t44 RNA: a 107-nucleotide sequence from Halomonas sp. HAL1. By type it is a small RNA. It is one of the family's seed sequences. From the family's description: This family consists of a number of bacterial RNA genes of between 135 and 170 bases in length. The t44 gene has been identified in several species of enteric bacteria but homologs have also been identified in Pseudomonas and Coxiella species. The t44 gene is found between the map and rpsB genes in all species in the full alignment apart from Shigella flexneri. The function of this RNA is unknown.
RNA sequence: ACUAUCAAGCCUUAAAAACACACAUGCACCGGCACAUGGUCCCGGGUGCCGCUGGCAGCGUUUAACGCGGUCAACGGUCGGAUCCAUGGGGUGCGUGGAGGCCUAAC
Numbered sequence: 001a002c003u004a005u006c007a008a009g010c011c012u013u014a015a016a017a018a019c020a021c022a023c024a025u026g027c028a029c030c031g032g033c034a035c036a037u038g039g040u041c042c043c044g045g046g047u048g049c050c051g052c053u054g055g056c057a058g059c060g061u062u063u064a065a066c067g068c069g070g071u072c073a074a075c076g077g078u079c080g081g082a083u084c085c086a087u088g089g090g091g092u093g094c095g096u097g098g099a100g101g102c103c104u105a106a107c
Stems, first nucleotide, its partner, number of pairs: 023097008035088005040082003048078004